RNA sequence: GCAGCUUUAGCUCAUCUGGGAGAGCGUCAGACUGAAGAUUUCUGUAAUCUGGAGGUACUGUGUUCGAGCCACAGAAGCUGCA
Numbered sequence: 001g002c003a004g005c006u007u008u009a010g011c012u013c014a015u016c017u018g019g020g021a022g023a024g025c026g027u028c029a030g031a032c033u034g035a036a037g038a039u040u041u042c043u044g045u046a047a048u049c050u051g052g053a054g055g056u057a058c059u060g061u062g063u064u065c066g067a068g069c070c071a072c073a074g075a076a077g078c079u080g081c082a
Base pairs, nucleotide, nucleotide: 001081002080003079004078005077006076007075010025011024012023013022027052028051029050030049031048058074059073060072061071062070

Shown here is an 82-nucleotide RNA sequence from Candida viswanathii, a member of the family "tRNA". The family's RNA type in Rfam is transfer RNA. The family's consensus secondary structure is taken from published work.